[Rfam]
RNA sequence: CCUCGCCUUCGGGGUCGGGUGAAAUUCCCAACCGGCGGUGAUGAGGUUAUCCUCUAAGCCCGUGACCCGGUCAUAUACAAAUAAUUUACAGCUUAAUGACUAUAAAUUAUUGUGAAGCCGGUUGAUUUGGUGGAAUUCCAAAGCCGACAGUAAAGUCUGGAUGGGAGAAGGCAUAA
Dot-bracket structure: ....((((((......(((.......))).[[((((((...................[[))))...(((((.............................................)))))....(((((.......)))))]])).(((....]]))).......))))))....